Record summary:
A member of the RNA family "FMN riboswitch aptamer (RFN element)" from Imhoffiella purpurea, 146 nucleotides long. Taxonomically the source falls in Imhoffiella (Bacteria, Pseudomonadota, Gammaproteobacteria, Chromatiales). The match comes from Rfam's covariance-model search (121 bits).
RNA sequence: ACUUAUUCUCAGGGCAGGGUGAAAUUCCCGACCGGCGGUGAUUCCGCGUCAGCGGAAAGCCCGCGAGCGCCUGUCUCCGGACAGGGUCAGCAGAUCCGGUGAGAUUCCGGGGCCGACGGUUAGAGUCCGGAUGGAAGAGGAUAAGG
Numbered sequence: 001a002c003u004u005a006u007u008c009u010c011a012g013g014g015c016a017g018g019g020u021g022a023a024a025u026u027c028c029c030g031a032c033c034g035g036c037g038g039u040g041a042u043u044c045c046g047c048g049u050c051a052g053c054g055g056a057a058a059g060c061c062c063g064c065g066a067g068c069g070c071c072u073g074u075c076u077c078c079g080g081a082c083a084g085g086g087u088c089a090g091c092a093g094a095u096c097c098g099g100u101g102a103g104a105u106u107c108c109g110g111g112g113c114c115g116a117c118g119g120u121u122a123g124a125g126u127c128c129g130g131a132u133g134g135a136a137g138a139g140g141a142u143a144a145g146g
Stems, first nucleotide, its partner, number of pairs: 003144008017029003031126002033115002035064004059113002067091002095111005117129003